[Rfam]
RNA sequence: AAAUCAAAUAGAGGUCGCAAAUAAUAAGAUUAGUUUAGGGAGUUACCAUUAGACGAUGAAACAAACGAAAGGGUUAUUUGCCGAAGCACUAAGUUAAAUGGAACUUAGCAAGCUGGGACAUAGUUGAAUAAGCUAUGGACUGUCGGAAUUAUUUCCGGGGAGCUAUGUAUAAU
Numbered sequence: 001a002a003a004u005c006a007a008a009u010a011g012a013g014g015u016c017g018c019a020a021a022u023a024a025u026a027a028g029a030u031u032a033g034u035u036u037a038g039g040g041a042g043u044u045a046c047c048a049u050u051a052g053a054c055g056a057u058g059a060a061a062c063a064a065a066c067g068a069a070a071g072g073g074u075u076a077u078u079u080g081c082c083g084a085a086g087c088a089c090u091a092a093g094u095u096a097a098a099u100g101g102a103a104c105u106u107a108g109c110a111a112g113c114u115g116g117g118a119c120a121u122a123g124u125u126g127a128a129u130a131a132g133c134u135a136u137g138g139a140c141u142g143u144c145g146g147a148a149u150u151a152u153u154u155c156c157g158g159g160g161a162g163c164u165a166u167g168u169a170u171a172a173u
Base pairs, nucleotide, nucleotide: 006168008166009165010164011163017081018080019079020078021077022076023075024074025073033066034065035064036063085114086113087112089108090107091106092105093104094103115141116140119137120136121135122134123133124132125131143158144157145156146155147154148153
Overview
Lysine riboswitch aptamer: a 173-nucleotide RNA from Fructilactobacillus sanfranciscensis. The organism belongs to Fructilactobacillus sanfranciscensis, within Bacteria.